Shown here is a 94-nucleotide RNA from Miscanthus lutarioriparius, a member of the family "Small nucleolar RNA snoR26". It scores 74 bits against the family's covariance model. Taxonomically the source falls in Miscanthus (Eukaryota, Euphyllophyta, Liliopsida, commelinids). The family's consensus secondary structure was predicted with WAR. Rfam 15.1 lists 611 matches to the family in 220 species.
RNA sequence: GGAGCAUCAGUGAUGUUACAUCCACAUUAACUCAUCCUUGCACUUUGAGCUGCGGUGGUGAAGAAACCGUUAGGGGAAGUUGUCUGAGAUGCUC
Numbered sequence: 001g002g003a004g005c006a007u008c009a010g011u012g013a014u015g016u017u018a019c020a021u022c023c024a025c026a027u028u029a030a031c032u033c034a035u036c037c038u039u040g041c042a043c044u045u046u047g048a049g050c051u052g053c054g055g056u057g058g059u060g061a062a063g064a065a066a067c068c069g070u071u072a073g074g075g076g077a078a079g080u081u082g083u084c085u086g087a088g089a090u091g092c093u094c
Stems, first nucleotide, its partner, number of pairs: 002094007